[Rfam]
RNA sequence: CUCUUAUCCCGAGCUGGUGGAGGGUCAGGCCCAAAGAAGCCCAGCAACCUGCAUUACAUUUCACGUAAUGCGUUGGUGCUAAUCUGAUGCAAGGAAUUUCCUUGAACGAUAAGAG
Numbered sequence: 001c002u003c004u005u006a007u008c009c010c011g012a013g014c015u016g017g018u019g020g021a022g023g024g025u026c027a028g029g030c031c032c033a034a035a036g037a038a039g040c041c042c043a044g045c046a047a048c049c050u051g052c053a054u055u056a057c058a059u060u061u062c063a064c065g066u067a068a069u070g071c072g073u074u075g076g077u078g079c080u081a082a083u084c085u086g087a088u089g090c091a092a093g094g095a096a097u098u099u100c101c102u103u104g105a106a107c108g109a110u111a112a113g114a115g
Base pairs, nucleotide, nucleotide: 001115002114003113004112005111006110007109008108013042016041017040018039022032023031024030026089027088029085043080044079045078046077048076049075050072051071052070053069054068055067056066057065090104091103092102093101094100095099
RNA: SAM riboswitch aptamer (S box leader)